[Rfam]
RNA sequence: CCAAAGGCUCUUUUCAGAGCCACCACUGGUCUCUGGAGGAAGAGCU
Numbered sequence: 001c002c003a004a005a006g007g008c009u010c011u012u013u014u015c016a017g018a019g020c021c022a023c024c025a026c027u028g029g030u031c032u033c034u035g036g037a038g039g040a041a042g043a044g045c046u
Base pairs, nucleotide, nucleotide: 006021007020008019009018010017011016
Histone 3' UTR stem-loop: a 46-nucleotide RNA from Cavia porcellus. Rfam links the family to the GO term mRNA 3'-end processing by stem-loop binding and cleavage. The mRNAs of metazoan histone genes lack a poly-A tail. 3' end processing occurs at a site between a highly conserved stem-loop (modelled by this family) and a purine rich region around 20 nts downstream (the histone downstream element, or HDE). The stem-loop is bound by a 31 kDa stem-loop binding protein (SLBP - also termed the histone hairpin binding protein, or HBP). Together with U7 snRNA binding of the HDE, SLBP binding nucleate s the formation of the processing complex.